Shown here is an 87-nucleotide RNA from Paraclostridium benzoelyticum, a member of the family "c-di-GMP-I riboswitch aptamer". A search with the family's covariance model found it, with a score of 74 bits. The organism belongs to Paraclostridium, within Bacteria.

Nucleotides: 087
Stems, first nucleotide, its partner, number of pairs: 012037002018031005040081004047077002049073003056067004
Number, partner (000 for none) and nucleotide at each position: 001000g002000a003000u004000a005000u006000u007000u008000a009000a010000g011000g012037g013036c014000a015000a016000a017000a018031c019030u020029a021028g022027g023000g024000a025000a026000a027022u028021c029020u030019a031018g032000c033000u034000a035000c036013g037012c038000a039000a040081a041080a042079c043078u044000a045000u046000a047077g048076g049073g050072g051071c052000u053000a054000a055000g056067g057066c058065u059064u060000u061000g062000a063000a064059a065058a066057g067056c068000u069000a070000u071051g072050c073049u074000c075000g076048c077047c078043a079042g080041u081040u082000a083000c084000c085000g086000a087000a